Shown here is an 87-nucleotide RNA sequence from Cnephaeus nilssonii, a member of the family "mir-9195 microRNA precursor family".
The base pairs follow the family's consensus structure, which was predicted with RNAalifold.
RNA sequence: AGAGGCCCUCCGUGGCCGGGGUGGAAUGCUUGUCUCGUUGCCGCAGUGGCGAAGCAAGCAUUCCUCCAGGCCUCUCACGAUGCCUGC
Numbered sequence: 001a002g003a004g005g006c007c008c009u010c011c012g013u014g015g016c017c018g019g020g021g022u023g024g025a026a027u028g029c030u031u032g033u034c035u036c037g038u039u040g041c042c043g044c045a046g047u048g049g050c051g052a053a054g055c056a057a058g059c060a061u062u063c064c065u066c067c068a069g070g071c072c073u074c075u076c077a078c079g080a081u082g083c084c085u086g087c
Base pairs, nucleotide, nucleotide: 004084005083006082012074014072015071016070017069020067021066023064024063025062026061027060028059029058030057031056032055033054037050038049039048040047041046
Dot-bracket structure: ...(((.....(.((((..((.(((((((((((...(((((....)))))...))))))))))).)).)))).).......)))...